[Rfam]
Nucleotides: 222
Stems, first nucleotide, its partner, number of pairs: 004040003019027002063078004086201007094194001095162005100155005109117002120146007166193005
Number, partner (000 for none) and nucleotide at each position: 001000u002000c003000g004040u005039g006038c007000c008000a009000g010000a011000c012000a013000g014000a015000g016000u017000a018000g019027c020026u021000u022000u023000c024000g025000g026020a027019g028000u029000g030000a031000a032000a033000u034000c035000c036000g037000u038006g039005c040004a041000g042000a043000g044000u045000g046000g047000a048000g049000a050000g051000a052000a053000g054000g055000a056000g057000u058000g059000c060000u061000u062000g063078a064077c065076c066075u067000u068000c069000c070000u071000g072000c073000a074000a075066a076065g077064g078063u079000a080000a081000a082000u083000a084000u085000a086201u087200g088199c089198c090197c091196u092195g093000a094194u095162g096161c097160g098159u099158c100155c101154g102153g103152g104151c105000g106000g107000a108000c109117g110116c111000u112000g113000c114000u115000u116110g117109c118000a119000u120146g121145g122144u123143a124142c125141g126140g127000a128000u129000u130000g131000c132000a133000g134000g135000u136000c137000a138000u139000u140126c141125u142124g143123u144122a145121u146120u147000u148000c149000a150000u151104g152103c153102c154101c155100g156000g157000u158099g159098a160097c161096g162095c163000u164000a165000u166193g167192u168191g169190c170189c171000u172000a173000c174000u175000g176000c177000a178000a179000c180000c181000u182000g183000c184000c185000a186000a187000c188000a189170g190169g191168c192167a193166u194094a195092c196091g197090g198089g199088g200087c201086a202000a203000g204000c205000g206000a207000g208000g209000u210000u211000u212000c213000u214000u215000a216000u217000g218000a219000c220000a221000a222000g
Rfam assigns this 222-nucleotide sequence to the family "RT-2 RNA". It is annotated as a small RNA.